[Rfam]
RNA sequence: AUGAUUCAAUCGCCGAAUCCGUAAGGAGCGGGGGACCCACGUAGUAGGGGUGAAUCACCUCUGGUGUAGGGCAUUCAACCUUAUGCCCGAACCCGUCAGCUAACCUCGUAGGCAAAAUAAGGAGAGGAA
Number, nucleotide and partner (000 for none) at each position: 001a000002u000003g000004a000005u000006u000007c000008a000009a000010u000011c000012g113013c112014c111015g000016a000017a000018u027019c026020c025021g000022u000023a000024a000025g020026g019027a018028g109029c108030g107031g106032g105033g104034g000035a000036c000037c000038c047039a000040c000041g000042u000043a000044g000045u000046a000047g038048g094049g093050g092051u000052g000053a000054a000055u000056c066057a065058c064059c063060u000061c000062u000063g059064g058065u057066g056067u000068a000069g088070g087071g086072c085073a000074u000075u000076c000077a000078a000079c000080c000081u000082u000083a000084u000085g072086c071087c070088c069089g000090a000091a000092c050093c049094c048095g000096u000097c000098a000099g000100c000101u000102a000103a000104c033105c032106u031107c030108g029109u028110a000111g014112g013113c012114a000115a000116a000117a000118u000119a000120a000121g000122g000123a000124g000125a000126g000127g000128a000129a000